[Rfam]
RNA: Gammaprotebacteria rimP leader
Organism: Vibrio sp. 10N.286.49.B3
RNA sequence: UCGAAUGUUUUUACUAUCAGGGUCCAGCAAUAAAAAACCCCGACUUUCGGGGUUUUUUGUUAUCUGUAUAUUUCAAAACGUUAGGUUCGAAAUAUACAGAUAGUAAUUUGCUUGGGAUUUAAAUUGGGCUUUGAGCCCUUUUUUU
Numbered sequence: 001u002c003g004a005a006u007g008u009u010u011u012u013a014c015u016a017u018c019a020g021g022g023u024c025c026a027g028c029a030a031u032a033a034a035a036a037a038c039c040c041c042g043a044c045u046u047u048c049g050g051g052g053u054u055u056u057u058u059g060u061u062a063u064c065u066g067u068a069u070a071u072u073u074c075a076a077a078a079c080g081u082u083a084g085g086u087u088c089g090a091a092a093u094a095u096a097c098a099g100a101u102a103g104u105a106a107u108u109u110g111c112u113u114g115g116g117a118u119u120u121a122a123a124u125u126g127g128g129c130u131u132u133g134a135g136c137c138c139u140u141u142u143u144u145u
Stems, first nucleotide, its partner, number of pairs: 034056009126138004
Dot-bracket structure: .................................(((((((((.....))))))))).....................................................................((((.....)))).......